[Rfam]
RNA sequence: UUCUUAUCAAGAGUGGCAGAGGGACCGGCCCUGUGAAGCCCGACAACCAGCCUUUAAGGUAUGGUGUCAAUUCCGACAGAUGAAAUCUGAGAGAUAAGAA
Numbered sequence: 001u002u003c004u005u006a007u008c009a010a011g012a013g014u015g016g017c018a019g020a021g022g023g024a025c026c027g028g029c030c031c032u033g034u035g036a037a038g039c040c041c042g043a044c045a046a047c048c049a050g051c052c053u054u055u056a057a058g059g060u061a062u063g064g065u066g067u068c069a070a071u072u073c074c075g076a077c078a079g080a081u082g083a084a085a086u087c088u089g090a091g092a093g094a095u096a097a098g099a100a
Stems, first nucleotide, its partner, number of pairs: 001100008013041001015040003021031003026075003042068004047064002049060001051058001072092001077089005
Shown here is a 100-nucleotide RNA sequence from Sporolactobacillus shoreae, a member of the family "SAM riboswitch aptamer (S box leader)".
Pairs were carried over by alignment from the consensus structure, which is taken from published work.